RtT RNA: a 124-nucleotide sequence from Photorhabdus laumondii. Rfam describes the family as follows. This family represents a bacterial cis-regulatory element known as RtT RNA. The exact function of RtT is unknown although it is thought that it may be involved in changing the cellular response in relation to amino acid starvation. The source organism's lineage runs through Bacteria, Pseudomonadota, Gammaproteobacteria, Morganellaceae and Photorhabdus laumondii subsp. laumondii. For this family Rfam cites "A novel RNA product of the tyrT operon of Escherichia coli" (Bosl and Kersten, Nucleic Acids Res, 1991).

RNA sequence: AUACCUCCGAUGCAGGGAGGGUCGAGAACCCUCGAACAGGGUUCGACAAAACGGCUUGCCGUUUUGGACCGCCAACGGCGGCCCGCAGGGUGAGCGCAGCGAAUCCAUCCCUCCCUCACCGCCA
Numbered sequence: 001a002u003a004c005c006u007c008c009g010a011u012g013c014a015g016g017g018a019g020g021g022u023c024g025a026g027a028a029c030c031c032u033c034g035a036a037c038a039g040g041g042u043u044c045g046a047c048a049a050a051a052c053g054g055c056u057u058g059c060c061g062u063u064u065u066g067g068a069c070c071g072c073c074a075a076c077g078g079c080g081g082c083c084c085g086c087a088g089g090g091u092g093a094g095c096g097c098a099g100c101g102a103a104u105c106c107a108u109c110c111c112u113c114c115c116u117c118a119c120c121g122c123c124a
Base pairs, nucleotide, nucleotide: 015115016114017113018112019111020110021109033092034091037089042087044085045084049063050062070080071079072078073077